[Rfam]
RNA sequence: UAAUAUGAGUGGAGGUUUGAAGUCUUCGCUGUGUUCAAUUUUCAAGUCCAGUGAGAUUCAACUCCUCCAACUUGUGUCA
Numbered sequence: 001u002a003a004u005a006u007g008a009g010u011g012g013a014g015g016u017u018u019g020a021a022g023u024c025u026u027c028g029c030u031g032u033g034u035u036c037a038a039u040u041u042u043c044a045a046g047u048c049c050a051g052u053g054a055g056a057u058u059c060a061a062c063u064c065c066u067c068c069a070a071c072u073u074g075u076g077u078c079a
Stems, first nucleotide, its partner, number of pairs: 007073003010069005018061001023056002026054006
RNA: mir-1175 microRNA precursor family
Organism: Diaphorina citri